[Rfam]
RNA sequence: UGUGAUGAUGCAGUCCUGUUCGGUGGGGGAGCUCCUGCAGUGGCGGGAACCUUCACUCAGACUCCUGACGACAUGCACAGGGGCCAUCUGACCAGCU
Numbered sequence: 001u002g003u004g005a006u007g008a009u010g011c012a013g014u015c016c017u018g019u020u021c022g023g024u025g026g027g028g029g030a031g032c033u034c035c036u037g038c039a040g041u042g043g044c045g046g047g048a049a050c051c052u053u054c055a056c057u058c059a060g061a062c063u064c065c066u067g068a069c070g071a072c073a074u075g076c077a078c079a080g081g082g083g084c085c086a087u088c089u090g091a092c093c094a095g096c097u
Stems, first nucleotide, its partner, number of pairs: 004096001006094002022058001023056004028051002034047005

Shown here is a 97-nucleotide RNA sequence from Ameiurus melas, a member of the family "Small nucleolar RNA SNORD67". Its family is annotated with nucleolus and RNA processing in the Gene Ontology. On this family, see Huttenhofer et al., EMBO J 2001: "RNomics: an experimental approach that identifies 201 candidates for novel, small, non-messenger RNAs in mouse". About the family: snoRNA HBII-166 belongs to the C/D family of snoRNAs. Rfam classes the family as a C/D-box small nucleolar RNA. Pairs were carried over by alignment from the consensus structure.